This 57-nucleotide RNA from Nelumbo nucifera belongs to the Rfam family "Plastid-rps18 3UTR RNA". It scores 68 bits against the family's covariance model. The family's RNA type in Rfam is cis-regulatory element.
RNA sequence: UGCAAGUAUUUUCCAAUUAAGAAGCAACGGCCUCUUGUACAAAUUACGUAUUAAUAA
Numbered sequence: 001u002g003c004a005a006g007u008a009u010u011u012u013c014c015a016a017u018u019a020a021g022a023a024g025c026a027a028c029g030g031c032c033u034c035u036u037g038u039a040c041a042a043a044u045u046a047c048g049u050a051u052u053a054a055u056a057a
Base pairs, nucleotide, nucleotide: 018037019036020035021034022033024031025030

Plastid rps18 is a non-coding RNA (ncRNA) present in plastids. It was identified as a short stem-loop motif in the 3 prime untranslate region (3UTR) of rps18 gene. On this family, see Richter et al., Plant Commun 2023: "Retrograde signaling in plants: A critical review focusing on the GUN pathway and beyond". The family's consensus secondary structure was predicted with LocARNA.